[Rfam]
RNA sequence: GGUCACGAGUACCAGCGACAAGCCCCGGCUAGCUGGUCGGCAACCCUCCUUCCGCGGUGGGGUGCUCCGGGUGACGACCUGGCCGGCGACGCAGUGUCGUCCGGCAAGCGCGGACU
Numbered sequence: 001g002g003u004c005a006c007g008a009g010u011a012c013c014a015g016c017g018a019c020a021a022g023c024c025c026c027g028g029c030u031a032g033c034u035g036g037u038c039g040g041c042a043a044c045c046c047u048c049c050u051u052c053c054g055c056g057g058u059g060g061g062g063u064g065c066u067c068c069g070g071g072u073g074a075c076g077a078c079c080u081g082g083c084c085g086g087c088g089a090c091g092c093a094g095u096g097u098c099g100u101c102c103g104g105c106a107a108g109c110g111c112g113g114a115c116u
Base pairs, nucleotide, nucleotide: 001079002078003077004076009038011037012036013035014034015033016032021030022029039066040065041064044062045061046060048057049056082105083104084103085102086101087099088098089097090096091095
RNA: SAM (S-adenosyl methionine) riboswitch aptamer